Record summary:
The record is a 173-nucleotide RNA from Bacteroides nordii, which matches "Bacteroides sRNA BTnc231" in Rfam. Pairs were carried over by alignment from the consensus structure, which is taken from published work.
RNA sequence: ACGUUUUUUUCAUAGAGAUUUAGAUUUAAGGUUAGAAGAAUUGCGGAAGUCGUGAGACUUCCCUUUUUUUCGCUUUAACGUUUACUGCCAUAAAGAAUUCAUGAUACAUUGAAUUCGCUUCAAUCUAAAGGCAAGUAAACAAGAAAAGCCCCUUCGAGAGAAGAGGCUUUUUA
Numbered sequence: 001a002c003g004u005u006u007u008u009u010u011c012a013u014a015g016a017g018a019u020u021u022a023g024a025u026u027u028a029a030g031g032u033u034a035g036a037a038g039a040a041u042u043g044c045g046g047a048a049g050u051c052g053u054g055a056g057a058c059u060u061c062c063c064u065u066u067u068u069u070u071c072g073c074u075u076u077a078a079c080g081u082u083u084a085c086u087g088c089c090a091u092a093a094a095g096a097a098u099u100c101a102u103g104a105u106a107c108a109u110u111g112a113a114u115u116c117g118c119u120u121c122a123a124u125c126u127a128a129a130g131g132c133a134a135g136u137a138a139a140c141a142a143g144a145a146a147a148g149c150c151c152c153u154u155c156g157a158g159a160g161a162a163g164a165g166g167c168u169u170u171u172u173a
Stems, first nucleotide, its partner, number of pairs: 026078007035071006045062007080140005086133004091128001093126001095124001142172001144171007152163004